The family of this 97-nucleotide RNA from Rhodamnia argentea is "Small nucleolar RNA Z266". It is annotated as a C/D-box small nucleolar RNA. The base pairs follow the family's consensus structure, which was predicted with PFOLD. The match comes from Rfam's covariance-model search (44 bits).
RNA sequence: AUGUGGCAAGAGUGAAGAGCGAAUUAGAUUUGGGAAGGGAGAGACUUCCCAGUGAACUCAACUUUGGGAUGCUUAUUGAUAUUCUGACUUGCUACUA
Numbered sequence: 001a002u003g004u005g006g007c008a009a010g011a012g013u014g015a016a017g018a019g020c021g022a023a024u025u026a027g028a029u030u031u032g033g034g035a036a037g038g039g040a041g042a043g044a045c046u047u048c049c050c051a052g053u054g055a056a057c058u059c060a061a062c063u064u065u066g067g068g069a070u071g072c073u074u075a076u077u078g079a080u081a082u083u084c085u086g087a088c089u090u091g092c093u094a095c096u097a
Base pairs, nucleotide, nucleotide: 003095004094005093006092007091008090009089010088